[Rfam]
RNA: c-di-GMP-I riboswitch aptamer
RNA sequence: AAAUGAUAAUAGCAAACUUAUCGUAAGGUAAGGACGCAAAGCUAAAGGGUCUUUUGUGAAAACAAGAGAUAGCCAGUUACCAAA
Numbered sequence: 001a002a003a004u005g006a007u008a009a010u011a012g013c014a015a016a017c018u019u020a021u022c023g024u025a026a027g028g029u030a031a032g033g034a035c036g037c038a039a040a041g042c043u044a045a046a047g048g049g050u051c052u053u054u055u056g057u058g059a060a061a062a063c064a065a066g067a068g069a070u071a072g073c074c075a076g077u078u079a080c081c082a083a084a
Stems, first nucleotide, its partner, number of pairs: 012037002017032006040078004047074002049070003054065004